The record is an 81-nucleotide RNA sequence from Orthohepacivirus hominis, which matches "SL588 non-coding RNA" in Rfam. It is one of the family's seed sequences. The literature on the family includes a 2016 paper in Mol Cell by Pirakitikulr et al., "The Coding Region of the HCV Genome Contains a Network of Regulatory RNA Structures". Rfam classes the family as a cis-regulatory element.

[Rfam]
RNA sequence: UUGGCCUCUGUAUGGCAAUGAGGGUUGCGGAUGGGCAGGCUGGCUCCUGUCCCCUCGCGGCUCUCGGCCUACGUGGGGCCC
Numbered sequence: 001u002u003g004g005c006c007u008c009u010g011u012a013u014g015g016c017a018a019u020g021a022g023g024g025u026u027g028c029g030g031a032u033g034g035g036c037a038g039g040c041u042g043g044c045u046c047c048u049g050u051c052c053c054c055u056c057g058c059g060g061c062u063c064u065c066g067g068c069c070u071a072c073g074u075g076g077g078g079c080c081c
Stems, first nucleotide, its partner, number of pairs: 003080006014069003019066002022063009033052007